[Rfam]
RNA sequence: AUGCAGGAUUAGUUACAGUGUAGCCUGUGUGGUGCUGCUCUGUCGUUCCCCCUGCGCAAAACAACUUGUUGCCUUCUAUUCCUGCCUGUCUAUGUCCCCUGAUGGGCAGGGACAUUUGGCUUCAGACAA
Numbered sequence: 001a002u003g004c005a006g007g008a009u010u011a012g013u014u015a016c017a018g019u020g021u022a023g024c025c026u027g028u029g030u031g032g033u034g035c036u037g038c039u040c041u042g043u044c045g046u047u048c049c050c051c052c053u054g055c056g057c058a059a060a061a062c063a064a065c066u067u068g069u070u071g072c073c074u075u076c077u078a079u080u081c082c083u084g085c086c087u088g089u090c091u092a093u094g095u096c097c098c099c100u101g102a103u104g105g106g107c108a109g110g111g112a113c114a115u116u117u118g119g120c121u122u123c124a125g126a127c128a129a
Stems, first nucleotide, its partner, number of pairs: 003055005015043004020038005081110004086105004
Small nucleolar RNA SNORA63: a 129-nucleotide RNA from Muraenolepis orangiensis. The literature on the family includes a 1997 paper in Proc Natl Acad Sci U S A by Mishra and Eliceiri, "Three small nucleolar RNAs that are involved in ribosomal RNA precursor processing". The base pairs follow the family's consensus structure, which was predicted with PFOLD. From the family's description: E3 belongs to the H/ACA class of snoRNAs and is involved in the processing of eukaryotic pre-rRNA and has regions of complementarity to 18S rRNA. E3 is encoded in introns in the gene for protein synthesis initiation factor 4AII. The source organism's lineage runs through Eukaryota, Craniata, Clupeocephala, Gadiformes and Muraenolepis. By type it is an H/ACA-box small nucleolar RNA.